A member of the RNA family "Antizyme RNA frameshifting stimulation element" from Myotis davidii, 57 nucleotides long. It scores 58 bits against the family's covariance model. NCBI's taxonomy places the organism under Eukaryota, Teleostomi, Theria, Laurasiatheria, Myotis. Rfam 15.1 lists 1,595 matches to the family in 640 species. Rfam links the family to the GO term translational frameshifting. From the family's description: This family represents a structural element which is found in antizyme mRNA and is known to promote frameshifting. Antizyme genes have have two partially overlapping open reading frames, the second, which encodes the functional protein requires +1 translational frameshifting. This frameshift is stimulated by a pseudoknot present 3' of the frameshift site in the antizyme mRNA. The frameshifting efficiency is dependent on the level of polyamines in the cell, when the polyamine concentration is high frameshifting is more likely to occur which leads to an increase in the quantity of functional antizyme produced. The functional antizyme acts to reduce ornithine decarboxylase (ODC) activity which leads to a drop in polyamines present in the cell. It is annotated as a frameshift element.
RNA sequence: UGAUGGCCUCACCUACCCCUGAAGAUCCAGGUGGGCGAGGGAAUAGUCAAAGGGAUC
Numbered sequence: 001u002g003a004u005g006g007c008c009u010c011a012c013c014u015a016c017c018c019c020u021g022a023a024g025a026u027c028c029a030g031g032u033g034g035g036c037g038a039g040g041g042a043a044u045a046g047u048c049a050a051a052g053g054g055a056u057c
Base pairs, nucleotide, nucleotide: 007040008039009038010037012035013034014033015032016031017030024057025056026055027054028053